Shown here is an 83-nucleotide sequence from Aedes aegypti, a member of the family "mir-2941 microRNA precursor family". It is one of the family's seed sequences. The base pairs follow the family's consensus structure, which was predicted with RNAalifold. Gene Ontology terms of the family: miRNA-mediated post-transcriptional gene silencing and RISC complex.
RNA sequence: GUACCACUUUCGUGGUGUUUAGACGUAUUACAUGAUUUUUUGAACAUAACUGUAGUACGGCUAGAACUCCACGGAUGUUGGCA
Dot-bracket structure: ...(.((.(((((((.((((((.(((((((((..................))))))))).)).)))).))))))).)).)...